[Rfam]
RNA: Small nucleolar RNA SNORA9
RNA sequence: UAGCAAGCUUCCAGCAUGCUUGGGCCUGCUGUGACCCUGUGCGUUCCUACAGAACUUGUCAGAACAGUUUUGAGACAGUUUGAGGCCUUGUCCUGCUCUAUCCAGAGCAAGGUUAUAGAAAUUUCAGACAACU
Numbered sequence: 001u002a003g004c005a006a007g008c009u010u011c012c013a014g015c016a017u018g019c020u021u022g023g024g025c026c027u028g029c030u031g032u033g034a035c036c037c038u039g040u041g042c043g044u045u046c047c048u049a050c051a052g053a054a055c056u057u058g059u060c061a062g063a064a065c066a067g068u069u070u071u072g073a074g075a076c077a078g079u080u081u082g083a084g085g086c087c088u089u090g091u092c093c094u095g096c097u098c099u100a101u102c103c104a105g106a107g108c109a110a111g112g113u114u115a116u117a118g119a120a121a122u123u124u125c126a127g128a129c130a131a132c133u
Stems, first nucleotide, its partner, number of pairs: 003059005017043003022037003026033001071126005086112006093105003